Nucleotides: 084
Stems, first nucleotide, its partner, number of pairs: 003082004
Number, partner (000 for none) and nucleotide at each position: 001000g002000c003082c004081u005080c006079u007000g008000a009000g010000g011000a012000u013000g014000a015000a016000c017000a018000u019000c020000u021000g022000a023000a024000u025000a026000c027000u028000u029000u030000c031000g032000u033000u034000c035000u036000u037000c038000c039000g040000a041000a042000a043000u044000g045000c046000a047000u048000c049000a050000u051000g052000u053000g054000g055000a056000a057000g058000a059000a060000u061000u062000a063000u064000g065000g066000a067000g068000a069000c070000c071000u072000g073000a074000a075000c076000u077000g078000a079006a080005g081004a082003g083000g084000c

Small nucleolar RNA Z159/U59: an 84-nucleotide RNA sequence from Eucalyptus grandis. Taxonomically the source falls in Eucalyptus (Eukaryota, Tracheophyta, Euphyllophyta, malvids). The literature on the family includes a 2003 paper in Nucleic Acids Res by Chen et al., "The high diversity of snoRNAs in plants: identification and comparative study of 120 snoRNA genes from Oryza sativa". A search with the family's covariance model found it, with a score of 69 bits. It is annotated as a C/D-box small nucleolar RNA.